[Rfam]
RNA sequence: GUACCUGACGGGGCUCUGACUGUGACUUGUGUUGUUUAAUCUAUUCACAUCACAGGCAGAGUUCUAGUUAGGCAC
Numbered sequence: 001g002u003a004c005c006u007g008a009c010g011g012g013g014c015u016c017u018g019a020c021u022g023u024g025a026c027u028u029g030u031g032u033u034g035u036u037u038a039a040u041c042u043a044u045u046c047a048c049a050u051c052a053c054a055g056g057c058a059g060a061g062u063u064c065u066a067g068u069u070a071g072g073c074a075c
Stems, first nucleotide, its partner, number of pairs: 004072003009067001010065007020055006029048003
RNA: mir-11 microRNA precursor family